The family of this 177-nucleotide RNA sequence from Triplophysa tibetana is "U2 spliceosomal RNA". It is annotated as a spliceosomal small nuclear RNA.
RNA sequence: AAAACUUUUCGAAAGAAAAAAAAAUCUGUUCUUAUCAGUUUAAUAUCUGAUACGUCCCCUAUCUGGGGACCAUCAAUUAAAUGGAUUUUUGAAGCGCGGAGCUGGAAGCGGGGCUUGCUCCGCCCACUCCACGCAUCGACCUGGUAUUGCAGUGUCUCCAGGAACGGUGCACUCCCC
Numbered sequence: 001a002a003a004a005c006u007u008u009u010c011g012a013a014a015g016a017a018a019a020a021a022a023a024a025u026c027u028g029u030u031c032u033u034a035u036c037a038g039u040u041u042a043a044u045a046u047c048u049g050a051u052a053c054g055u056c057c058c059c060u061a062u063c064u065g066g067g068g069a070c071c072a073u074c075a076a077u078u079a080a081a082u083g084g085a086u087u088u089u090u091g092a093a094g095c096g097c098g099g100a101g102c103u104g105g106a107a108g109c110g111g112g113g114c115u116u117g118c119u120c121c122g123c124c125c126a127c128u129c130c131a132c133g134c135a136u137c138g139a140c141c142u143g144g145u146a147u148u149g150c151a152g153u154g155u156c157u158c159c160a161g162g163a164a165c166g167g168u169g170c171a172c173u174c175c176c177c
Base pairs, nucleotide, nucleotide: 007019008018009017033052034051035050036049037048038047054070055069056068057067058066059065098130099129100128101127104124105123110121111120112119113118133170134169135168136167137166138165140162141161142160143159144158

It scores 120 bits against the family's covariance model. The base pairs follow the family's consensus structure, which is taken from published work. Rfam links the family to the GO terms mRNA branch site recognition, pre-mRNA branch point binding and U2 snRNP.